[Rfam]
RNA: Small nucleolar RNA SNORA77
RNA sequence: GCAGACUCACUCUGUACUGAACUGCAGUCUUCAGUUCUGGUGCUUUUUCUGUCUGCGAGAGUAAUAGUUCACAGGAGUGACAAUUGCCUUCUUCCUUGUAGGAGGCUGUUACAAUUGCUGUUGGGACAUUGGG
Dot-bracket structure: ((((((.......((((((..(((.......)))...)))))).......))))))...........((.((((.(.((..(...((((.............))))...).)).)..)))).)).........